[Rfam]
RNA sequence: UUACUUAAUUUCAUAGCCGAAAUGGCUAUUGGCUGGUGGUUUUAUAACCACCGGCCU
Numbered sequence: 001u002u003a004c005u006u007a008a009u010u011u012c013a014u015a016g017c018c019g020a021a022a023u024g025g026c027u028a029u030u031g032g033c034u035g036g037u038g039g040u041u042u043u044a045u046a047a048c049c050a051c052c053g054g055c056c057u
Stems, first nucleotide, its partner, number of pairs: 014028005031056010

Pseudomonas sRNA P26: a 57-nucleotide RNA from Vibrio sp. qd031. It is annotated as a non-coding RNA gene. Rfam's curators write: This small RNA (sRNA) was computationally identified in the genome of the opportunistic pathogen Pseudomonas aeruginosa and its expression verified by northern blot analysis. P26 is conserved across many Gammaproteobacteria species and appears to be consistently located between the DNA directed RNA polymerase (beta subunit) and 50S ribosomal protein L7/L12 genes.